The family of this 114-nucleotide RNA from Cytobacillus kochii is "epsC RNA". The family's consensus secondary structure is taken from published work. By type it is a cis-regulatory element.
RNA sequence: AGGUGAUGUCUCCUUGCCUUUAUCUAAGAGAGAUACUCGGUCAUGCUGUGGGUUGAAAGAAACCUUAGACGCCCUGUCGUCAAGAGUGUGGUGAGAGGGGGGGUUAGAUGCCCU
Numbered sequence: 001a002g003g004u005g006a007u008g009u010c011u012c013c014u015u016g017c018c019u020u021u022a023u024c025u026a027a028g029a030g031a032g033a034u035a036c037u038c039g040g041u042c043a044u045g046c047u048g049u050g051g052g053u054u055g056a057a058a059g060a061a062a063c064c065u066u067a068g069a070c071g072c073c074c075u076g077u078c079g080u081c082a083a084g085a086g087u088g089u090g091g092u093g094a095g096a097g098g099g100g101g102g103g104u105u106a107g108a109u110g111c112c113c114u
Stems, first nucleotide, its partner, number of pairs: 001019004007035006013028001036097003040092008050065005068081004100114005
Description
NCBI's taxonomy places the organism under Bacteria, Bacillota, Bacilli, Bacillaceae, Cytobacillus. The match comes from Rfam's covariance-model search (86 bits).